[Rfam]
RNA sequence: GACGGGCCACCGCCUAAUCGUGCCCUGCGCACGAGCCGGGGACCCAUGAAGUUGGGGUGAAGCUGCGGCGCACGCCGUGGCCGGGCGCGCUUCCCGCCCGAAUCCGUCAGCUAACCCGGUCGGCGGCCCAUCGGAAGAAAG
Numbered sequence: 001g002a003c004g005g006g007c008c009a010c011c012g013c014c015u016a017a018u019c020g021u022g023c024c025c026u027g028c029g030c031a032c033g034a035g036c037c038g039g040g041g042a043c044c045c046a047u048g049a050a051g052u053u054g055g056g057g058u059g060a061a062g063c064u065g066c067g068g069c070g071c072a073c074g075c076c077g078u079g080g081c082c083g084g085g086c087g088c089g090c091u092u093c094c095c096g097c098c099c100g101a102a103u104c105c106g107u108c109a110g111c112u113a114a115c116c117c118g119g120u121c122g123g124c125g126g127c128c129c130a131u132c133g134g135a136a137g138a139a140a141g
Base pairs, nucleotide, nucleotide: 011125012124013123014122018034019033020032021031022030035120036119037118038117039116040115045054046053055105056104057103063080064079065078066077083099084098085097086096